[Rfam]
RNA sequence: CACAAAGUUUCCUAGGGUUCCGCUGCCAUUCAAAGGCAGGGCAGGUCCGAGAGGAAACGCGCAGCUGCUGCGUUCACGGAAGGACAAAAGCCUGGGAGAU
Numbered sequence: 001c002a003c004a005a006a007g008u009u010u011c012c013u014a015g016g017g018u019u020c021c022g023c024u025g026c027c028a029u030u031c032a033a034a035g036g037c038a039g040g041g042c043a044g045g046u047c048c049g050a051g052a053g054g055a056a057a058c059g060c061g062c063a064g065c066u067g068c069u070g071c072g073u074u075c076a077c078g079g080a081a082g083g084a085c086a087a088a089a090g091c092c093u094g095g096g097a098g099a100u
Stems, first nucleotide, its partner, number of pairs: 007058006015048002020045002022042001023039005059073006075095001077098001081093003

A member of the RNA family "Guanidine-I riboswitch aptamer" from Falsibacillus albus, 100 nucleotides long. Its family is annotated with regulation of gene expression in the Gene Ontology. Lineage of the source: Bacteria > Bacillati > Bacilli > Caryophanales > Falsibacillus.